[Rfam]
RNA sequence: AUUUUCCUUCGGGGCAGGGUGAAAAUCCCGACCGGCGGUGAUUCCGCGUCGAUUGCGUUAUAAUCGACUGCUUGCGGAUCAGUCCGUGACCCGUGCUAAAGCGCGUGCUUGGCCGGUGGACCUGGUGUGAAUCCGGGACCGACAGUAUAGUCUGGAUGGGAGAAGGAAUCG
Dot-bracket structure: ...(((((((......(((.......))).[[((((((.............................................))))...((......................))....(((((.......)))))..)).(((....]]))).......)))))))...
Numbered sequence: 001a002u003u004u005u006c007c008u009u010c011g012g013g014g015c016a017g018g019g020u021g022a023a024a025a026u027c028c029c030g031a032c033c034g035g036c037g038g039u040g041a042u043u044c045c046g047c048g049u050c051g052a053u054u055g056c057g058u059u060a061u062a063a064u065c066g067a068c069u070g071c072u073u074g075c076g077g078a079u080c081a082g083u084c085c086g087u088g089a090c091c092c093g094u095g096c097u098a099a100a101g102c103g104c105g106u107g108c109u110u111g112g113c114c115g116g117u118g119g120a121c122c123u124g125g126u127g128u129g130a131a132u133c134c135g136g137g138a139c140c141g142a143c144a145g146u147a148u149a150g151u152c153u154g155g156a157u158g159g160g161a162g163a164a165g166g167a168a169u170c171g
Stems, first nucleotide, its partner, number of pairs: 004168007017029003031151002033141002035087004091116002121137005143154003
The family of this 171-nucleotide sequence from Paenibacillus oceani is "FMN riboswitch aptamer (RFN element)".